[Rfam]
RNA sequence: UUGCACGCAGUAUCGUAGGUGUCUCUUAUAAUAUAGAGCGAUCUUGAUACAUAGUGCAUAUAUUAAGAGCUGUUUAUUCAGCAAGCAGCCAGACAACUGCUGAGAUGGAUCCACAGAUUCACGGCUUAUUCAUGCUGUUUCUCUACUAAUUCCAUCUUACAUUU
Numbered sequence: 001u002u003g004c005a006c007g008c009a010g011u012a013u014c015g016u017a018g019g020u021g022u023c024u025c026u027u028a029u030a031a032u033a034u035a036g037a038g039c040g041a042u043c044u045u046g047a048u049a050c051a052u053a054g055u056g057c058a059u060a061u062a063u064u065a066a067g068a069g070c071u072g073u074u075u076a077u078u079c080a081g082c083a084a085g086c087a088g089c090c091a092g093a094c095a096a097c098u099g100c101u102g103a104g105a106u107g108g109a110u111c112c113a114c115a116g117a118u119u120c121a122c123g124g125c126u127u128a129u130u131c132a133u134g135c136u137g138u139u140u141c142u143c144u145a146c147u148a149a150u151u152c153c154a155u156c157u158u159a160c161a162u163u164u
Stems, first nucleotide, its partner, number of pairs: 002058005010050002013047003017044003020040002023038004102158008121139001122137003
This 164-nucleotide sequence from Cicer arietinum belongs to the Rfam family "small nucleolar RNA snoR143". The base pairs follow the family's consensus structure, which was predicted with RNAalifold. It scores 100 bits against the family's covariance model. Rfam links the family to the GO terms nucleolus and RNA processing. By type it is an H/ACA-box small nucleolar RNA.